[Rfam]
Notes
A member of the RNA family "Guanidine-I riboswitch aptamer" from Paenibacillus cellulosilyticus, 166 nucleotides long. It scores 68 bits against the family's covariance model. A reference for the family is Barrick et al. (2004), "New RNA motifs suggest an expanded scope for riboswitches in bacterial genetic control", Proc Natl Acad Sci U S A.
RNA sequence: GACAAAGCUGUCUAGGGUUCCGUUGAUCCUCCCUUAAUUGCCUACUUCAAAGUAUGCGAUGGAGGUGUUAAGACUGGUCCGAGAGAUGGCGUGCGAUGGCCAACCAGCUGCUGCGGGAAGCGGUUCGGAAGGCGCGCAUACACGGAAGGACAAAAGCCUGGGAGAU
Numbered sequence: 001g002a003c004a005a006a007g008c009u010g011u012c013u014a015g016g017g018u019u020c021c022g023u024u025g026a027u028c029c030u031c032c033c034u035u036a037a038u039u040g041c042c043u044a045c046u047u048c049a050a051a052g053u054a055u056g057c058g059a060u061g062g063a064g065g066u067g068u069u070a071a072g073a074c075u076g077g078u079c080c081g082a083g084a085g086a087u088g089g090c091g092u093g094c095g096a097u098g099g100c101c102a103a104c105c106a107g108c109u110g111c112u113g114c115g116g117g118a119a120g121c122g123g124u125u126c127g128g129a130a131g132g133c134g135c136g137c138a139u140a141c142a143c144g145g146a147a148g149g150a151c152a153a154a155a156g157c158c159u160g161g162g163a164g165a166u
Stems, first nucleotide, its partner, number of pairs: 007090006015080002020077002022074001023071005091139005141161001143164001147159003